[Rfam]
RNA: MIR408 microRNA precursor family
RNA sequence: GUGAUUUGAGGAGAAGAGACAGGGAUGAGGCAGAGCAUGGGAUGGGGCUAUCAACAGAUCGAUAGAUUCCUUUCUUGAGCUGUAGUACUAUCCUCUUGUGAAUUGUUGGAAGAGAUGAGCUGUGAGAGAUGGCUGGUGUUGUUGCUCCCUCCCCUGCACUGCCUCUUCCCUGGCUGCUCCCCUGCAUAGCCUC
Numbered sequence: 001g002u003g004a005u006u007u008g009a010g011g012a013g014a015a016g017a018g019a020c021a022g023g024g025a026u027g028a029g030g031c032a033g034a035g036c037a038u039g040g041g042a043u044g045g046g047g048c049u050a051u052c053a054a055c056a057g058a059u060c061g062a063u064a065g066a067u068u069c070c071u072u073u074c075u076u077g078a079g080c081u082g083u084a085g086u087a088c089u090a091u092c093c094u095c096u097u098g099u100g101a102a103u104u105g106u107u108g109g110a111a112g113a114g115a116u117g118a119g120c121u122g123u124g125a126g127a128g129a130u131g132g133c134u135g136g137u138g139u140u141g142u143u144g145c146u147c148c149c150u151c152c153c154c155u156g157c158a159c160u161g162c163c164u165c166u167u168c169c170c171u172g173g174c175u176g177c178u179c180c181c182c183u184g185c186a187u188a189g190c191c192u193c
Stems, first nucleotide, its partner, number of pairs: 017175002020172006028164006035157003039153001041152001045147004
Dot-bracket structure: ................((.((((((..((((((.(((.(.(...((((...............................................................................................))))....)).))).))))))..)))))).))..................